About this RNA
The record is a 136-nucleotide sequence from Jaculus jaculus, which matches "Small nucleolar RNA SNORA42/SNORA80 family" in Rfam. The members of this family belong to the H/ACA class of snoRNAs that guide the sites of modification of uridines to pseudouridines. The base pairs follow the family's consensus structure, which was predicted with RNAalifold. The organism belongs to Jaculus, within Eukaryota. The family's RNA type in Rfam is H/ACA-box small nucleolar RNA.
[Rfam]
RNA sequence: GCAUAGGUUUGAAUUUAGGGCAGGUCAGUCUCCCUGGGCCUCUCAUAGUGUUCUAUUCCAGAGAAAAUUGCAUCCCUGAAUCACACUACCUGUCCUCUCCCGGUAGGCUGCUGGCACUGAAGGAGAUUGUACAGAA
Numbered sequence: 001g002c003a004u005a006g007g008u009u010u011g012a013a014u015u016u017a018g019g020g021c022a023g024g025u026c027a028g029u030c031u032c033c034c035u036g037g038g039c040c041u042c043u044c045a046u047a048g049u050g051u052u053c054u055a056u057u058c059c060a061g062a063g064a065a066a067a068u069u070g071c072a073u074c075c076c077u078g079a080a081u082c083a084c085a086c087u088a089c090c091u092g093u094c095c096u097c098u099c100c101c102g103g104u105a106g107g108c109u110g111c112u113g114g115c116a117c118u119g120a121a122g123g124a125g126a127u128u129g130u131a132c133a134g135a136a
Stems, first nucleotide, its partner, number of pairs: 001058001003056002006052003015048003019044002022041003025037002071129002075125001082119002089114002091110002094107003